[Rfam]
RNA sequence: GCGGCGGGCCGUGACUGGCGCGCUGGACCCCGACCAGGGGGUCCGAGGAUGGGACGGACCAUCGGGGAGCGGCCCGGCGAAUGAACUGUGCCGUGCGCCUGGGCCGUACCG
Numbered sequence: 001g002c003g004g005c006g007g008g009c010c011g012u013g014a015c016u017g018g019c020g021c022g023c024u025g026g027a028c029c030c031c032g033a034c035c036a037g038g039g040g041g042u043c044c045g046a047g048g049a050u051g052g053g054a055c056g057g058a059c060c061a062u063c064g065g066g067g068a069g070c071g072g073c074c075c076g077g078c079g080a081a082u083g084a085a086c087u088g089u090g091c092c093g094u095g096c097g098c099c100u101g102g103g104c105c106g107u108a109c110c111g
Base pairs, nucleotide, nucleotide: 003078005076006075007074008073009072010071011070012069015066016065017099018098019097020096021095049062050061051060052059090104091103092102
RNA: ZMP/ZTP riboswitch aptamer (pfl RNA motif)